The family of this 424-nucleotide RNA from Syntrophomonas wolfei is "Bacterial RNase P class A".
The organism belongs to Syntrophomonas wolfei subsp. wolfei, within Bacteria.

[Rfam]
Nucleotides: 424
Stems, first nucleotide, its partner, number of pairs: 001420010011409001012389007020037006042407003046404005051293004058325004063289005068082005083097001084095004098284002103282002105278003119225002121221021233251006253273001254271007297346004307336006316330005353372008
Number, partner (000 for none) and nucleotide at each position: 001420u002419a003418a004417g005416u006415a007414a008413a009412u010411c011409a012389g013388a014387u015386a016385g017384u018383c019000g020037c021036a022035g023034g024033c025032a026000u027000u028000u029000a030000u031000u032025u033024g034023c035022c036021u037020g038000a039000g040000g041000a042407a043406a044405g045000u046404c047403g048402g049401a050400g051293c052292u053291c054290c055000a056000u057000a058325g059324g060323g061322c062000a063289g064288g065287g066286u067285g068082c069081u070080g071079g072078a073000u074000a075000a076000c077000a078072u079071c080070c081069a082068g083097u084095g085094g086093g087092g088000g089000u090000g091000a092087c093086c094085c095084c096000a097083a098284g099283g100000a101000a102000a103282g104281u105278g106277c107276c108000a109000c110000a111000g112000a113000a114000a115000g116000a117000a118000a119225c120224c121221g122220c123219c124218g125217g126216a127215a128214a129213u130212g131211g132210a133209g134208a135207c136206c137205a138204g139203a140202g141201c142000g143000g144000a145000g146000g147000a148000c149000g150000g151000a152000a153000g154000u155000c156000g157000g158000a159000u160000g161000u162000c163000g164000g165000a166000a167000g168000a169000c170000c171000g172000a173000u174000g175000u176000u177000u178000g179000a180000u181000u182000a183000c184000g185000g186000a187000a188000g189000a190000a191000g192000g193000a194000a195000u196000u197000c198000c199000g200000g201141g202140u203139u204138c205137u206136g207135g208134u209133c210132u211131c212130c213129g214128u215127u216126u217125u218124c219123g220122g221121c222000a223000a224120g225119g226000g227000u228000g229000g230000a231000a232000a233251g234250g235249u236248g237247a238246g239000g240000u241000a242000a243000g244000a245000g246238c247237u248236c249235a250234c251233c252000a253273g254271c255270a256269u257268u258267c259266a260265g261000g262000c263000g264000a265260c266259u267258g268257a269256a270255u271254g272000g273253c274000u275000c276107g277106g278105c279000a280000a281104a282103c283099c284098c285067c286066a287065c288064c289063u290054g291053g292052a293051g294000c295000a296000a297346g298345a299344c300343c301000g302000a303000a304000u305000a306000g307336g308335g309334g310333a311332a312331c313000a314000a315000u316330g317329a318328g319327g320326c321000g322061g323060c324059c325058c326320g327319u328318c329317u330316c331312g332311u333310u334309c335308c336307c337000g338000g339000g340000u341000u342000a343300g344299g345298u346297c347000g348000c349000u350000u351000g352000a353372g354371g355370u356369a357368g358367c359366a360365g361000g362000u363000a364000a365360c366359u367358g368357c369356u370355g371354u372353c373000c374000c375000a376000g377000a378000u379000a380000g381000a382000u383018g384017a385016c386015u387014a388013u389012c390000u391000a392000a393000u394000a395000c396000a397000g398000a399000a400050c401049u402048c403047c404046g405044c406043u407042u408000a409011u410000a411010g412009a413008u414007u415006u416005a417004c418003u419002u420001a421000c422000u423000u424000u

Annotation
From the family's description: Ribonuclease P (RNase P) is a ubiquitous endoribonuclease, found in archaea, bacteria and eukarya as well as chloroplasts and mitochondria. Its best characterised activity is the generation of mature 5'-ends of tRNAs by cleaving the 5'-leader elements of precursor-tRNAs. Cellular RNase Ps are ribonucleoproteins. RNA from bacterial RNase Ps retains its catalytic activity in the absence of the protein subunit, i.e. it is a ribozyme.